[Rfam]
RNA: mraW RNA
Organism: Mycolicibacterium austroafricanum
RNA sequence: GCAGGCCCGUGCAGUGUGGCCUCUGCCCGACCCGGCCCUGACGUACUUCCCCGACGUCAGGUUCGCGCACUCGGGCAGGGACCUCACUGCAGGGGCCGCUCCAA
Numbered sequence: 001g002c003a004g005g006c007c008c009g010u011g012c013a014g015u016g017u018g019g020c021c022u023c024u025g026c027c028c029g030a031c032c033c034g035g036c037c038c039u040g041a042c043g044u045a046c047u048u049c050c051c052c053g054a055c056g057u058c059a060g061g062u063u064c065g066c067g068c069a070c071u072c073g074g075g076c077a078g079g080g081a082c083c084u085c086a087c088u089g090c091a092g093g094g095g096c097c098g099c100u101c102c103a104a
Stems, first nucleotide, its partner, number of pairs: 010091007018083002021080010031067001033065003037061008